About this RNA
Rfam assigns this 234-nucleotide RNA from Urocolius indicus to the family "Small nucleolar RNA SNORA53". Rfam classes the family as an H/ACA-box small nucleolar RNA. The source organism's lineage runs through Eukaryota, Gnathostomata, Telluraves, Coliidae and Urocolius. The match comes from Rfam's covariance-model search (203 bits). The snoRNA ACA53 belongs to the H/ACA family of pseudouridylation guide snoRNAs. Gene Ontology terms of the family: nucleolus and RNA processing.

RNA sequence: CACAUGCUCCUUAGAUCCAUCUUUGUGAGUAUCUUUGUGCUGAGUUCUGCUGGAUAACUUCAGUUUCUAGCAGUUCCAGUCAGAGAUACUCAGCAACUUUUUGGUUGUACAGUCGAAGAUGCUUGAGUCAUUGGCAUGUAAGAAUAACAUAACUGCAUGUUAGCUUUCUGUUCUGAUAGCUGUGAAUGUACAUGUCACUUACCACUAUCAGGACUUGGCUGGUGUGCAGACAGG
Numbered sequence: 001c002a003c004a005u006g007c008u009c010c011u012u013a014g015a016u017c018c019a020u021c022u023u024u025g026u027g028a029g030u031a032u033c034u035u036u037g038u039g040c041u042g043a044g045u046u047c048u049g050c051u052g053g054a055u056a057a058c059u060u061c062a063g064u065u066u067c068u069a070g071c072a073g074u075u076c077c078a079g080u081c082a083g084a085g086a087u088a089c090u091c092a093g094c095a096a097c098u099u100u101u102u103g104g105u106u107g108u109a110c111a112g113u114c115g116a117a118g119a120u121g122c123u124u125g126a127g128u129c130a131u132u133g134g135c136a137u138g139u140a141a142g143a144a145u146a147a148c149a150u151a152a153c154u155g156c157a158u159g160u161u162a163g164c165u166u167u168c169u170g171u172u173c174u175g176a177u178a179g180c181u182g183u184g185a186a187u188g189u190a191c192a193u194g195u196c197a198c199u200u201a202c203c204a205c206u207a208u209c210a211g212g213a214c215u216u217g218g219c220u221g222g223u224g225u226g227c228a229g230a231c232a233g234g
Stems, first nucleotide, its partner, number of pairs: 002139007010127005018121008026092006034084004039080004044076001047073004053067001056065003093108006153229005160222001162220004172212008183204002186200001188195002